[Rfam]
RNA sequence: CUAGCUUCUUGGCUUUGAGAACUGAAUUCCAUAGGCUUUGAAAUGAUUUAAAAAACGCCCACUGGAUUCAGUUCUGCAGCUGGGAAGCAAAUC
Numbered sequence: 001c002u003a004g005c006u007u008c009u010u011g012g013c014u015u016u017g018a019g020a021a022c023u024g025a026a027u028u029c030c031a032u033a034g035g036c037u038u039u040g041a042a043a044u045g046a047u048u049u050a051a052a053a054a055a056c057g058c059c060c061a062c063u064g065g066a067u068u069c070a071g072u073u074c075u076g077c078a079g080c081u082g083g084g085a086a087g088c089a090a091a092u093c
Stems, first nucleotide, its partner, number of pairs: 008084002011081003018075008034059003
The record is a 93-nucleotide RNA sequence from Sphenodon punctatus, which matches "mir-146 microRNA precursor family" in Rfam. On this family, see Lagos-Quintana et al., Curr Biol 2002: "Identification of tissue-specific microRNAs from mouse". NCBI's taxonomy places the organism under Eukaryota, Eumetazoa, Vertebrata, Dipnotetrapodomorpha, Sphenodon. Rfam 15.1 lists 1,617 matches to the family in 642 species.